[Rfam]
RNA sequence: AAAUUUUGACACGAACCUACUCAUAUAAUCCGAAGGAUGUGGCUUUGGAGUCUCUACCGGGUGGCCGUAAACCACCUGACUAUGAGUAAGGCUUAAUAUGCU
Numbered sequence: 001a002a003a004u005u006u007u008g009a010c011a012c013g014a015a016c017c018u019a020c021u022c023a024u025a026u027a028a029u030c031c032g033a034a035g036g037a038u039g040u041g042g043c044u045u046u047g048g049a050g051u052c053u054c055u056a057c058c059g060g061g062u063g064g065c066c067g068u069a070a071a072c073c074a075c076c077u078g079a080c081u082a083u084g085a086g087u088a089a090g091g092c093u094u095a096a097u098a099u100g101c102u
Stems, first nucleotide, its partner, number of pairs: 018088008029049007058078007